[Rfam]
Nucleotides: 056
Base pairs, nucleotide, nucleotide: 001050002049003048004047005046006045007044008043009042010041011040012039013038014037017034018033019032020031021030022029
Number, partner (000 for none) and nucleotide at each position: 001050a002049a003048a004047g005046g006045a007044g008043c009042a010041a011040u012039a013038a014037c015000c016000u017034c018033u019032c020031u021030u022029g023000g024000u025000u026000u027000a028000u029022u030021a031020a032019g033018a034017g035000a036000g037014g038013u039012u040011g041010u042009u043008g044007c045006u046005c047004c048003u049002u050001u051000a052000u053000u054000u055000a056000u